[Rfam]
RNA sequence: CGAGUCAGUGAGAUCAUCGCCGGAAAACUUCGGUUUUCGGGAGGAAAGUCCGGGCAUCGUAUGGCAAUGUAGCGGUUAAUGGCCGUCCACCGUGAGGUGAGGACAAGUGCAACAGAAAGGAAGUACAGGGGUCUGAGGACGUUUAUGGUAGCUUCGGCCGGGUAAACUCCGACGGUUCGUCCACCUGCUGUAGUGAAAACAGGUAAACUCUACGUGAUGCAAGCCCAAAUAGGUCUGUGCUUGAAGGUUGCCAGCCUGAGCAGACGGGUUGGGUGCUUGAGCCUAUCGGUAACGGUAGGCCUAGAUGAAUGAUGGUCCUCGACAGGACCCGGCUUACACGCUGGCUCGGUUU
Numbered sequence: 001c002g003a004g005u006c007a008g009u010g011a012g013a014u015c016a017u018c019g020c021c022g023g024a025a026a027a028c029u030u031c032g033g034u035u036u037u038c039g040g041g042a043g044g045a046a047a048g049u050c051c052g053g054g055c056a057u058c059g060u061a062u063g064g065c066a067a068u069g070u071a072g073c074g075g076u077u078a079a080u081g082g083c084c085g086u087c088c089a090c091c092g093u094g095a096g097g098u099g100a101g102g103a104c105a106a107g108u109g110c111a112a113c114a115g116a117a118a119g120g121a122a123g124u125a126c127a128g129g130g131g132u133c134u135g136a137g138g139a140c141g142u143u144u145a146u147g148g149u150a151g152c153u154u155c156g157g158c159c160g161g162g163u164a165a166a167c168u169c170c171g172a173c174g175g176u177u178c179g180u181c182c183a184c185c186u187g188c189u190g191u192a193g194u195g196a197a198a199a200c201a202g203g204u205a206a207a208c209u210c211u212a213c214g215u216g217a218u219g220c221a222a223g224c225c226c227a228a229a230u231a232g233g234u235c236u237g238u239g240c241u242u243g244a245a246g247g248u249u250g251c252c253a254g255c256c257u258g259a260g261c262a263g264a265c266g267g268g269u270u271g272g273g274u275g276c277u278u279g280a281g282c283c284u285a286u287c288g289g290u291a292a293c294g295g296u297a298g299g300c301c302u303a304g305a306u307g308a309a310u311g312a313u314g315g316u317c318c319u320c321g322a323c324a325g326g327a328c329c330c331g332g333c334u335u336a337c338a339c340g341c342u343g344g345c346u347c348g349g350u351u352u
Stems, first nucleotide, its partner, number of pairs: 001348010012317007020041002023038006046335003050332005055219004062253004067215005072086005087101001088099004102210002107208002109204002223274004233265006245257004281300008

Record summary:
Bacterial RNase P class A: a 352-nucleotide RNA from Bacteriovorax sp. BSW11_IV. The family's RNA type in Rfam is ribozyme.